[Rfam]
RNA: c-di-GMP-I riboswitch aptamer
Organism: Thalassotalea marina
RNA sequence: CAGGGAAAUUGGCAAACUGCUUGAAAAAGCAGGACGCAAAGCUACCGAUCUAAGGCCAGUUUAUUGGCUAUGAUAGCGGAGCUGCAGAG
Numbered sequence: 001c002a003g004g005g006a007a008a009u010u011g012g013c014a015a016a017c018u019g020c021u022u023g024a025a026a027a028a029g030c031a032g033g034a035c036g037c038a039a040a041g042c043u044a045c046c047g048a049u050c051u052a053a054g055g056c057c058a059g060u061u062u063a064u065u066g067g068c069u070a071u072g073a074u075a076g077c078g079g080a081g082c083u084g085c086a087g088a089g
Stems, first nucleotide, its partner, number of pairs: 012037002017032006040083004045079003048074003055068004